RNA sequence: CUCUCCCAAAGGAUCACCUCCGCGUGGUGGGAGAGGGGCAACGGCAAGGUUAUAUGCCGGCUAACGAUCCG
Numbered sequence: 001c002u003c004u005c006c007c008a009a010a011g012g013a014u015c016a017c018c019u020c021c022g023c024g025u026g027g028u029g030g031g032a033g034a035g036g037g038g039c040a041a042c043g044g045c046a047a048g049g050u051u052a053u054a055u056g057c058c059g060g061c062u063a064a065c066g067a068u069c070c071g
Stems, first nucleotide, its partner, number of pairs: 001035007016028003042059005

A member of the RNA family "HDV ribozyme from F. prausnitzii" from Medioppia subpectinata, 71 nucleotides long. The family's consensus secondary structure is taken from published work.